[Rfam]
RNA: MIR7504 microRNA precursor family
Organism: Gossypium laxum
RNA sequence: AAUGAGAGAAUGGUAAAUCAAAUUUUUCCUCUUGAUUUUCAGCCUUUUCUUCUUGAAAAAAUUCAAAUCAAACUAAAAACACUAAAAAUCAGGAAAAAAAAAUCUGAUUUGUCAUUCACCUAUU
Numbered sequence: 001a002a003u004g005a006g007a008g009a010a011u012g013g014u015a016a017a018u019c020a021a022a023u024u025u026u027u028c029c030u031c032u033u034g035a036u037u038u039u040c041a042g043c044c045u046u047u048u049c050u051u052c053u054u055g056a057a058a059a060a061a062u063u064c065a066a067a068u069c070a071a072a073c074u075a076a077a078a079a080c081a082c083u084a085a086a087a088a089u090c091a092g093g094a095a096a097a098a099a100a101a102a103u104c105u106g107a108u109u110u111g112u113c114a115u116u117c118a119c120c121u122a123u124u
Stems, first nucleotide, its partner, number of pairs: 001124004006119001008117013022103001023101005030094010041083002045079004